[Rfam]
RNA: c-di-GMP-I riboswitch aptamer
Organism: Methylophilaceae bacterium
RNA sequence: AAAACAUGGAGGCAAAACCUGAGAAAUCAGGCGACACAAAGCAACCGGUCUUAACCAUCCGGAAAGACAGCGGGGCUACCAUG
Numbered sequence: 001a002a003a004a005c006a007u008g009g010a011g012g013c014a015a016a017a018c019c020u021g022a023g024a025a026a027u028c029a030g031g032c033g034a035c036a037c038a039a040a041g042c043a044a045c046c047g048g049u050c051u052u053a054a055c056c057a058u059c060c061g062g063a064a065a066g067a068c069a070g071c072g073g074g075g076c077u078a079c080c081a082u083g
Base pairs, nucleotide, nucleotide: 012037018031019030020029021028022027040077041076042075045073046072047071048068049067050066055062056061
Dot-bracket structure: ...........(.....(((((....))))).....)..(((..((((((....((....))...)))..))).)))......